A member of the RNA family "MIR2619 microRNA precursor family" from Medicago truncatula, 172 nucleotides long.
The source organism's lineage runs through Eukaryota, Viridiplantae, Embryophyta, rosids and Medicago.
Its family is annotated with miRNA-mediated post-transcriptional gene silencing and RISC complex in the Gene Ontology.
RNA sequence: AAACCGCCCCCUAAGUUUUACAAUUGUAGCAGUUUUGGCCCUCCAAGGCCAAUUUUUGGUAAAAAAAAAUAACACGUGGCACCUCACUUAGGGUGCCACGUCAGUGUAGACUGAGUCAAAAUUGGCCUUGGGGGCCAAAACUCUCACACAUGCAAAACUUAGGGGGCGGUUU
Numbered sequence: 001a002a003a004c005c006g007c008c009c010c011c012u013a014a015g016u017u018u019u020a021c022a023a024u025u026g027u028a029g030c031a032g033u034u035u036u037g038g039c040c041c042u043c044c045a046a047g048g049c050c051a052a053u054u055u056u057u058g059g060u061a062a063a064a065a066a067a068a069a070u071a072a073c074a075c076g077u078g079g080c081a082c083c084u085c086a087c088u089u090a091g092g093g094u095g096c097c098a099c100g101u102c103a104g105u106g107u108a109g110a111c112u113g114a115g116u117c118a119a120a121a122u123u124g125g126c127c128u129u130g131g132g133g134g135c136c137a138a139a140a141c142u143c144u145c146a147c148a149c150a151u152g153c154a155a156a157a158c159u160u161a162g163g164g165g166g167c168g169g170u171u172u
Base pairs, nucleotide, nucleotide: 001172002171004169005168006167007166008165012161013160014159015158016157017156018155019154021152022151025148026147027146029144031142032141033140034139035138036137037136038135039134040133041132043131044130045129046128074101075100077098078097079096080095081094082093083092